The record is a 91-nucleotide sequence, which matches "Group II catalytic intron D1-D4-1" in Rfam.
RNA sequence: CGCGCGGCGGAGUGAUCCGCAGCGUGAUCGGGCAGAAGUCAGCAGAGGCCAUAGUAGUGCGGGCGCCGGGACCGGCGCCGGCGCGAAGGGC
Number, nucleotide and partner (000 for none) at each position: 001c026002g025003c000004g023005c022006g000007g020008c019009g018010g017011a016012g000013u000014g000015a000016u011017c010018c009019g008020c007021a000022g005023c004024g000025u002026g001027a000028u000029c000030g000031g000032g000033c000034a000035g000036a000037a000038g000039u046040c045041a000042g000043c000044a000045g040046a039047g000048g091049c090050c089051a000052u000053a000054g000055u000056a000057g084058u083059g082060c000061g000062g079063g078064c077065g076066c075067c074068g000069g000070g000071a000072c000073c000074g067075g066076c065077g064078c063079c062080g000081g000082c059083g058084c057085g000086a000087a000088g000089g050090g049091c048
Rfam's curators write: Group II introns are found in rRNA, tRNA and mRNA of organelles in fungi, plants and protists, and also in mRNA in bacteria.